RNA sequence: UGGGACCUUCGGGGCCCUUCACCAAACCGCGGUCCAGUGCCCAUCCGGGGCAGGGCCGCCCACAAAACGGAAGACAGAAA
Numbered sequence: 001u002g003g004g005a006c007c008u009u010c011g012g013g014g015c016c017c018u019u020c021a022c023c024a025a026a027c028c029g030c031g032g033u034c035c036a037g038u039g040c041c042c043a044u045c046c047g048g049g050g051c052a053g054g055g056c057c058g059c060c061c062a063c064a065a066a067a068c069g070g071a072a073g074a075c076a077g078a079a080a
Stems, first nucleotide, its partner, number of pairs: 002017003006014003029059007
Shown here is an 80-nucleotide RNA from Rhodobacteraceae bacterium THAF1, a member of the family "L2-Alphaproteobacteria ribosomal protein leader". A search with the family's covariance model found it, with a score of 54 bits. The organism belongs to Paracoccaceae, within Bacteria.